[Rfam]
RNA sequence: UAUGAUAUUCCCGGACGGCAUCCGCGAAUGAGCCAUGCAUGCAUGAGCGAACUCACGGGCAUCGGUCGGGCAAGCCGGUAUGAGCAAGGAGCUCGAUAGCUCGGAUUGCGAAUGCUGGCGACGAUUGCGGGAUCACCAAAGGUGCGGAGCAAUCGUCUUUCAUG
Numbered sequence: 001u002a003u004g005a006u007a008u009u010c011c012c013g014g015a016c017g018g019c020a021u022c023c024g025c026g027a028a029u030g031a032g033c034c035a036u037g038c039a040u041g042c043a044u045g046a047g048c049g050a051a052c053u054c055a056c057g058g059g060c061a062u063c064g065g066u067c068g069g070g071c072a073a074g075c076c077g078g079u080a081u082g083a084g085c086a087a088g089g090a091g092c093u094c095g096a097u098a099g100c101u102c103g104g105a106u107u108g109c110g111a112a113u114g115c116u117g118g119c120g121a122c123g124a125u126u127g128c129g130g131g132a133u134c135a136c137c138a139a140a141g142g143u144g145c146g147g148a149g150c151a152a153u154c155g156u157c158u159u160u161c162a163u164g
Stems, first nucleotide, its partner, number of pairs: 001164005007158001010070004017063002021059004026054002029051001032048001034045004074119008084109004089102004122155007134144003
This 164-nucleotide RNA belongs to the Rfam family "Clostridiales-1 RNA". The family has 194 seed sequences and 1,172 matches in Rfam 15.1. The base pairs follow the family's consensus structure, which is taken from published work. It is annotated as a small RNA.